FMN riboswitch aptamer (RFN element): a 136-nucleotide sequence from Actinotalea fermentans. Rfam describes the family as follows. The RFN element is a highly conserved domain that is found frequently in the 5'-untranslated regions of prokaryotic mRNAs that encode for flavin mononucleotide (FMN) biosynthesis and transport proteins. The organism belongs to Actinotalea, within Bacteria. A reference for the family is Gelfand et al. (1999), "A conserved RNA structure element involved in the regulation of bacterial riboflavin synthesis genes", Trends Genet.
[Rfam]
RNA sequence: UACGUGCUCCGGGGUCGGUGUAAGUCCGAGCCGGCGGUGACAGUCCGCGACCCGAGCCUGGCGGCGACGCCAGGUCCGGUUGACCUGGUGAAACUCCAGGACCGACGGUGAAAGCCCGGAUGGGAGGAGGCACGUG
Numbered sequence: 001u002a003c004g005u006g007c008u009c010c011g012g013g014g015u016c017g018g019u020g021u022a023a024g025u026c027c028g029a030g031c032c033g034g035c036g037g038u039g040a041c042a043g044u045c046c047g048c049g050a051c052c053c054g055a056g057c058c059u060g061g062c063g064g065c066g067a068c069g070c071c072a073g074g075u076c077c078g079g080u081u082g083a084c085c086u087g088g089u090g091a092a093a094c095u096c097c098a099g100g101a102c103c104g105a106c107g108g109u110g111a112a113a114g115c116c117c118g119g120a121u122g123g124g125a126g127g128a129g130g131c132a133c134g135u136g
Stems, first nucleotide, its partner, number of pairs: 003134005008128003016028003030115002032104002034048004043102002052079002084100005106118003